Rfam assigns this 56-nucleotide RNA from Streptomyces sp. ICBB 8177 to the family "L17-Actino-Proteobacteria ribosomal protein leader". Lineage of the source: Bacteria > Actinomycetes > Kitasatosporales > Streptomycetaceae > Streptomyces. The match comes from Rfam's covariance-model search (67 bits).
RNA sequence: CCCGCAGGCGGCCGCCUGCGGGGUCCUGUCGCCGGUACCUGGUACGGCCGGCGCAG
Numbered sequence: 001c002c003c004g005c006a007g008g009c010g011g012c013c014g015c016c017u018g019c020g021g022g023g024u025c026c027u028g029u030c031g032c033c034g035g036u037a038c039c040u041g042g043u044a045c046g047g048c049c050g051g052c053g054c055a056g
Base pairs, nucleotide, nucleotide: 001022002021003020004019005018006017007016008015009014026056027055028054030053031052032051033050034049035048036047